RNA sequence: AAACCAUGAUGAGGACACUGAGCAGUGUAGCUGUUGAAUCGUUCCCAUGCUUCACUAAAACCUUCAAGAUUCUUUUGUUGAAAUCCUGAAAUCUCAUUCCUAAGCUU
Numbered sequence: 001a002a003a004c005c006a007u008g009a010u011g012a013g014g015a016c017a018c019u020g021a022g023c024a025g026u027g028u029a030g031c032u033g034u035u036g037a038a039u040c041g042u043u044c045c046c047a048u049g050c051u052u053c054a055c056u057a058a059a060a061c062c063u064u065c066a067a068g069a070u071u072c073u074u075u076u077g078u079u080g081a082a083a084u085c086c087u088g089a090a091a092u093c094u095c096a097u098u099c100c101u102a103a104g105c106u107u
Stems, first nucleotide, its partner, number of pairs: 001107001004104001006101001057074002060071001
Plant small nucleolar RNA R71: a 107-nucleotide RNA from Raphanus sativus. A reference for the family is Brown et al. (2003), "Plant snoRNAs: functional evolution and new modes of gene expression", Trends Plant Sci.